Overview: Shown here is a 73-nucleotide RNA sequence from Malurus cyaneus, a member of the family "Small nucleolar RNA SNORD63". From the family's description: snoRNA U63 is found in both humans and mice. The base pairs follow the family's consensus structure, which was predicted with PFOLD. Its family is annotated with nucleolus and RNA processing in the Gene Ontology. By type it is a C/D-box small nucleolar RNA.

[Rfam]
RNA sequence: GUGCCAUGAUGUUAAACUGUCAACACAUCAUUCUGAAGAAGAAUUAUGUGGAGAUAUCGUGGAACUGAGCACC
Number, nucleotide and partner (000 for none) at each position: 001g072002u071003g070004c069005c000006a000007u000008g000009a000010u000011g000012u000013u000014a000015a000016a000017c000018u000019g000020u000021c000022a000023a000024c000025a000026c000027a000028u000029c000030a000031u000032u000033c000034u000035g000036a000037a000038g000039a000040a000041g000042a000043a000044u000045u000046a000047u000048g000049u000050g000051g000052a000053g000054a000055u000056a000057u000058c000059g000060u000061g000062g000063a000064a000065c000066u000067g000068a000069g004070c003071a002072c001073c000